[Rfam]
The record is a 117-nucleotide RNA sequence, which matches "ALIL pseudoknot" in Rfam.

RNA sequence: CGCGUUUUUCGCCCAGGCGGAGCUCGACCGCCGUUUCAAAUCCUGAGGGCGUUCGUGGACACGCACCGUGGCACGUUCGGGGUCGAGCCGAUCUGCAGCGUCUUGCAGAUUGCCCCG
Numbered sequence: 001c002g003c004g005u006u007u008u009u010c011g012c013c014c015a016g017g018c019g020g021a022g023c024u025c026g027a028c029c030g031c032c033g034u035u036u037c038a039a040a041u042c043c044u045g046a047g048g049g050c051g052u053u054c055g056u057g058g059a060c061a062c063g064c065a066c067c068g069u070g071g072c073a074c075g076u077u078c079g080g081g082g083u084c085g086a087g088c089c090g091a092u093c094u095g096c097a098g099c100g101u102c103u104u105g106c107a108g109a110u111u112g113c114c115c116c117g
Base pairs, nucleotide, nucleotide: 016032017031018030019029020028078117079116080115081114082113089112090111092109093108094107095106096105097104098103
Rfam classes the family as a cis-regulatory element. The base pairs follow the family's consensus structure, which is taken from published work.